[Rfam]
Nucleotides: 078
Base pairs, nucleotide, nucleotide: 013078014077015076017074019072022034023033024032045065048064049063050062051061052060053059054058
Number, partner (000 for none) and nucleotide at each position: 001000g002000g003000g004000a005000g006000g007000c008000a009000a010000a011000a012000g013078c014077u015076g016000a017074u018000c019072u020000c021000u022034a023033c024032c025000u026000c027000c028000c029000c030000g031000a032024g033023g034022u035000g036000c037000c038000u039000c040000c041000u042000g043000g044000g045065c046000a047000a048064c049063u050062g051061c052060u053059c054058c055000u056000a057000u058054g059053g060052a061051g062050c063049a064048g065045g066000c067000u068000a069000a070000c071000a072019g073000a074017g075000a076015c077014a078013g

A member of the RNA family "drz-agam-1 ribozyme" from Rhodnius prolixus, 78 nucleotides long. The family's consensus secondary structure is taken from published work. Its family is annotated with catalytic activity in the Gene Ontology. The source organism's lineage runs through Eukaryota, Ecdysozoa, Neoptera, Hemiptera and Rhodnius. The literature on the family includes a 2009 paper in Science by Webb et al., "Widespread occurrence of self-cleaving ribozymes". The match comes from Rfam's covariance-model search (39 bits).